[Rfam]
RNA sequence: ACCUUAUGAUGAUGAUGAAAUGGUUAAGGAUGUGGGUUUCUCUAGUUUAACGGCUGAAGAGGACCUUAAUUGGUCCUAGAACGGCCUGAGGUAGAGGGGUUUUAGUCGGUAGGUCCGAGGACUUCUUCCUCGGGAAUCCGACACUACCCAGUCGUACGGACGACUGGGUGUCUUUUGAAGAUUUCUCCUCUUCCACGAAA
Numbered sequence: 001a002c003c004u005u006a007u008g009a010u011g012a013u014g015a016u017g018a019a020a021u022g023g024u025u026a027a028g029g030a031u032g033u034g035g036g037u038u039u040c041u042c043u044a045g046u047u048u049a050a051c052g053g054c055u056g057a058a059g060a061g062g063a064c065c066u067u068a069a070u071u072g073g074u075c076c077u078a079g080a081a082c083g084g085c086c087u088g089a090g091g092u093a094g095a096g097g098g099g100u101u102u103u104a105g106u107c108g109g110u111a112g113g114u115c116c117g118a119g120g121a122c123u124u125c126u127u128c129c130u131c132g133g134g135a136a137u138c139c140g141a142c143a144c145u146a147c148c149c150a151g152u153c154g155u156a157c158g159g160a161c162g163a164c165u166g167g168g169u170g171u172c173u174u175u176u177g178a179a180g181a182u183u184u185c186u187c188c189u190c191u192u193c194c195a196c197g198a199a200a
Stems, first nucleotide, its partner, number of pairs: 070199002073196002090194002093191002096187003105142005114134008144170001146169005

A member of the RNA family "R2 RNA element" from Agrilus planipennis, 200 nucleotides long. A search with the family's covariance model found it, with a score of 48 bits. NCBI's taxonomy places the organism under Eukaryota, Metazoa, Altocrustacea, Neoptera, Agrilus. About the family: This family represents the 3' UTR region of the R2 retrotransposable element. This family is known to interact with the R2-encoded reverse transcriptase in a reaction known as target primed reverse transcription (TPRT). By type it is a cis-regulatory element.